Source information: A member of the RNA family "TPP riboswitch aptamer (THI element)" from Virgisporangium aliadipatigenens, 111 nucleotides long. Rfam describes the family as follows. Vitamin B(1) in its active form thiamin pyrophosphate (TPP) is an essential coenzyme that is synthesised by coupling of pyrimidine and thiazole moieties in bacteria.
RNA sequence: GGCGCAACCCACGGGAGUCCGGUGCGACCGGGCUGAGAGGGGGGCUGUGAGCCCCCGACCGUCGAACCUGAUCCGGAUCAUGCCGGCGCAGGGAGGAGCCUCGCAUGAAAC
Dot-bracket structure: ........((((((..(((((.......)))))......(((((((...)))))))..))))....((((..((((......))))..))))..))...............
Numbered sequence: 001g002g003c004g005c006a007a008c009c010c011a012c013g014g015g016a017g018u019c020c021g022g023u024g025c026g027a028c029c030g031g032g033c034u035g036a037g038a039g040g041g042g043g044g045c046u047g048u049g050a051g052c053c054c055c056c057g058a059c060c061g062u063c064g065a066a067c068c069u070g071a072u073c074c075g076g077a078u079c080a081u082g083c084c085g086g087c088g089c090a091g092g093g094a095g096g097a098g099c100c101u102c103g104c105a106u107g108a109a110a111c
Stems, first nucleotide, its partner, number of pairs: 009096002011062004017033005040056007067092004073086004

A search with the family's covariance model found it, with a score of 58 bits.